[Rfam]
RNA: Archaeal signal recognition particle RNA
Organism: Methanococcus maripaludis
RNA sequence: GUGGCUAGGCUGGGAAGUUAGGCGUUUCCUGUAACUCGAAAUCGCCUUUGCGAGAGCCGAAAACUUGAGGGCGGUUUUAAAUUCUGUCGCCCAUUCUCAAGUUUUGUGUAGACAUUUCGUCCUUUGGGGUAAGAUGGAGGAGGAACCUUUUUUGUAAGAAAAAGACAAACCUCCCUUAUCUUUCGAACCCCGUCAGGCCCGGAAGGGAGCAGCGGUAGAAAGAACUUCAACGCUCAGAGGGUUGCGGAAUCGAGCAGAACUUGAGGUACAAUGGGUUUCAGGAUUUUUCACCCACCUCAAGGAAGCCACUUU
Numbered sequence: 001g002u003g004g005c006u007a008g009g010c011u012g013g014g015a016a017g018u019u020a021g022g023c024g025u026u027u028c029c030u031g032u033a034a035c036u037c038g039a040a041a042u043c044g045c046c047u048u049u050g051c052g053a054g055a056g057c058c059g060a061a062a063a064c065u066u067g068a069g070g071g072c073g074g075u076u077u078u079a080a081a082u083u084c085u086g087u088c089g090c091c092c093a094u095u096c097u098c099a100a101g102u103u104u105u106g107u108g109u110a111g112a113c114a115u116u117u118c119g120u121c122c123u124u125u126g127g128g129g130u131a132a133g134a135u136g137g138a139g140g141a142g143g144a145a146c147c148u149u150u151u152u153u154g155u156a157a158g159a160a161a162a163a164g165a166c167a168a169a170c171c172u173c174c175c176u177u178a179u180c181u182u183u184c185g186a187a188c189c190c191c192g193u194c195a196g197g198c199c200c201g202g203a204a205g206g207g208a209g210c211a212g213c214g215g216u217a218g219a220a221a222g223a224a225c226u227u228c229a230a231c232g233c234u235c236a237g238a239g240g241g242u243u244g245c246g247g248a249a250u251c252g253a254g255c256a257g258a259a260c261u262u263g264a265g266g267u268a269c270a271a272u273g274g275g276u277u278u279c280a281g282g283a284u285u286u287u288u289c290a291c292c293c294a295c296c297u298c299a300a301g302g303a304a305g306c307c308a309c310u311u312u
Stems, first nucleotide, its partner, number of pairs: 001309006008058004012030007035054004064301007073292003079286002084281003089276006096265012109252001114250007121240008129231002133228002136225001137176001139174005147164007179223006190215004198207003